[Rfam]
RNA sequence: GACCCAGAACCGCGAGGAACGGCCCCUUGCGGAUCGGGCAAUUAAACCUGAAGGAG
Numbered sequence: 001g002a003c004c005c006a007g008a009a010c011c012g013c014g015a016g017g018a019a020c021g022g023c024c025c026c027u028u029g030c031g032g033a034u035c036g037g038g039c040a041a042u043u044a045a046a047c048c049u050g051a052a053g054g055a056g
Stems, first nucleotide, its partner, number of pairs: 003038003007035002010032008
About this RNA:
A member of the RNA family "L20-Deltaproteobacteria ribosomal protein leader", 56 nucleotides long. The family's RNA type in Rfam is cis-regulatory leader. Rfam's curators put it in the seed alignment.